[Rfam]
RNA sequence: GAUCUUGAGGAGCGUUGCGACGGACGGGUGCGCUCACCCGCCGCCAGGCUCAAGAUCCUUCUUUCCGGCCCGCCGCCCCGUUUUCGGCGCGUGGGCCCGCUUUGAACGGCGCUCACGUCCC
Numbered sequence: 001g002a003u004c005u006u007g008a009g010g011a012g013c014g015u016u017g018c019g020a021c022g023g024a025c026g027g028g029u030g031c032g033c034u035c036a037c038c039c040g041c042c043g044c045c046a047g048g049c050u051c052a053a054g055a056u057c058c059u060u061c062u063u064u065c066c067g068g069c070c071c072g073c074c075g076c077c078c079c080g081u082u083u084u085c086g087g088c089g090c091g092u093g094g095g096c097c098c099g100c101u102u103u104g105a106a107c108g109g110c111g112c113u114c115a116c117g118u119c120c121c
Base pairs, nucleotide, nucleotide: 002056003055004054005053006052007051008050021043022042023041026038